Small nucleolar RNA SNORD115: a 73-nucleotide RNA from Carlito syrichta.
Lineage of the source: Eukaryota > Sarcopterygii > Tetrapoda > Haplorrhini > Carlito.
Pairs were carried over by alignment from the consensus structure, which was predicted with PFOLD.
A search with the family's covariance model found it, with a score of 52 bits.
Rfam classes the family as a C/D-box small nucleolar RNA.

[Rfam]
RNA sequence: GGGUCAAUGAUGAACAUUUUAUAUUGCCUGGAGGAGCGGUGAUGACUGAAAGUUUAACAUGAUGCUGAGGCCC
Numbered sequence: 001g002g003g004u005c006a007a008u009g010a011u012g013a014a015c016a017u018u019u020u021a022u023a024u025u026g027c028c029u030g031g032a033g034g035a036g037c038g039g040u041g042a043u044g045a046c047u048g049a050a051a052g053u054u055u056a057a058c059a060u061g062a063u064g065c066u067g068a069g070g071c072c073c
Stems, first nucleotide, its partner, number of pairs: 001073004005067002008064002